Record summary: The record is a 57-nucleotide sequence from Citrobacter youngae, which matches "Enterobacterial sRNA STnc450" in Rfam. It is annotated as a small RNA. Rfam's curators put it in the seed alignment. Taxonomically the source falls in Citrobacter youngae (Bacteria, Pseudomonadota, Enterobacteriaceae, Citrobacter).
[Rfam]
RNA sequence: CGCUAUACUAGCUGCUGAAUUUACCGGCUCAACUCCACGAGCCGGUUUUCAAUGUGU
Numbered sequence: 001c002g003c004u005a006u007a008c009u010a011g012c013u014g015c016u017g018a019a020u021u022u023a024c025c026g027g028c029u030c031a032a033c034u035c036c037a038c039g040a041g042c043c044g045g046u047u048u049u050c051a052a053u054g055u056g057u
Stems, first nucleotide, its partner, number of pairs: 002012004016051004023046008